The record is a 583-nucleotide part of an RNA from Candidatus Methanomassiliicoccus intestinalis, which matches "Archaeal large subunit ribosomal RNA" in Rfam. The base pairs follow the family's consensus structure, which is taken from published work. The organism belongs to Candidatus Methanomassiliicoccus intestinalis, within Archaea.
RNA sequence: CUUCCACCUGAAAGCGAAGACCCCAUGGAGCUUUACUACAACCUGUUGUUGUGAUACGAGCCCUAAUGUGUAGCGUAGGCAGGAGUCGUUAUCAGGGCUUGCCGCCAGGCAAGUUCCGAGACAUCAAUGAAACACUGCCCUUUAGGACUCGUACCACUUACUCUUUCUGAGAGGACAGCUAUAGGUGGGCAGUUUGGGUGGGGCGCCACGCGCUCAAAAAGAUAACAAGCGCGCCCAAUGGUCAGCUCAGGCAGGUCAGAAAUCUGCCGUUGAAUGCAAAGGUAAAAGCUGGCUUGACGUCGGUUGGGACAAUAACAAUCGGCGAUACGAAAGUAGGGCUUAGCGAACCACUCAGCCUUCUGAAUGGGGGCGAGUGAUAACAGAAAAGUUACCCUGGGGAUAACUGAGUCGUCGCUAGCAAGAGUUCAUAUCGACCUAGCGGUUUGCUACUUCGCUGUCGGCUCUCCCUAUCCUGGUGGUGCAGCAGCUACCAAGGGUGGGGUUGUUCGCCCAUUAAAAGGGAUCGUGAGCUGGGUUCAGACCGUCGUGAGACAGGUUUGUUGCUUUUUGGUGGAAGUGUAUU
Numbered sequence: 001c002u003u004c005c006a007c008c009u010g011a012a013a014g015c016g017a018a019g020a021c022c023c024c025a026u027g028g029a030g031c032u033u034u035a036c037u038a039c040a041a042c043c044u045g046u047u048g049u050u051g052u053g054a055u056a057c058g059a060g061c062c063c064u065a066a067u068g069u070g071u072a073g074c075g076u077a078g079g080c081a082g083g084a085g086u087c088g089u090u091a092u093c094a095g096g097g098c099u100u101g102c103c104g105c106c107a108g109g110c111a112a113g114u115u116c117c118g119a120g121a122c123a124u125c126a127a128u129g130a131a132a133c134a135c136u137g138c139c140c141u142u143u144a145g146g147a148c149u150c151g152u153a154c155c156a157c158u159u160a161c162u163c164u165u166u167c168u169g170a171g172a173g174g175a176c177a178g179c180u181a182u183a184g185g186u187g188g189g190c191a192g193u194u195u196g197g198g199u200g201g202g203g204c205g206c207c208a209c210g211c212g213c214u215c216a217a218a219a220a221g222a223u224a225a226c227a228a229g230c231g232c233g234c235c236c237a238a239u240g241g242u243c244a245g246c247u248c249a250g251g252c253a254g255g256u257c258a259g260a261a262a263u264c265u266g267c268c269g270u271u272g273a274a275u276g277c278a279a280a281g282g283u284a285a286a287a288g289c290u291g292g293c294u295u296g297a298c299g300u301c302g303g304u305u306g307g308g309a310c311a312a313u314a315a316c317a318a319u320c321g322g323c324g325a326u327a328c329g330a331a332a333g334u335a336g337g338g339c340u341u342a343g344c345g346a347a348c349c350a351c352u353c354a355g356c357c358u359u360c361u362g363a364a365u366g367g368g369g370g371c372g373a374g375u376g377a378u379a380a381c382a383g384a385a386a387a388g389u390u391a392c393c394c395u396g397g398g399g400a401u402a403a404c405u406g407a408g409u410c411g412u413c414g415c416u417a418g419c420a421a422g423a424g425u426u427c428a429u430a431u432c433g434a435c436c437u438a439g440c441g442g443u444u445u446g447c448u449a450c451u452u453c454g455c456u457g458u459c460g461g462c463u464c465u466c467c468c469u470a471u472c473c474u475g476g477u478g479g480u481g482c483a484g485c486a487g488c489u490a491c492c493a494a495g496g497g498u499g500g501g502g503u504u505g506u507u508c509g510c511c512c513a514u515u516a517a518a519a520g521g522g523a524u525c526g527u528g529a530g531c532u533g534g535g536u537u538c539a540g541a542c543c544g545u546c547g548u549g550a551g552a553c554a555g556g557u558u559u560g561u562u563g564c565u566u567u568u569u570g571g572u573g574g575a576a577g578u579g580u581a582u583u
Stems, first nucleotide, its partner, number of pairs: 001577008010569003014564002022398004027394002029390005035193003042185005048179001051157003055153006062146005068140001078139005085122003099112005161173004196209001197207003210232005235338002241293006247273002250268006274283002298324009326335001328333001349376005355371005407448003411445001412442007422432002459534001460532004464526001465523005472497002476491005500512004540558004544553003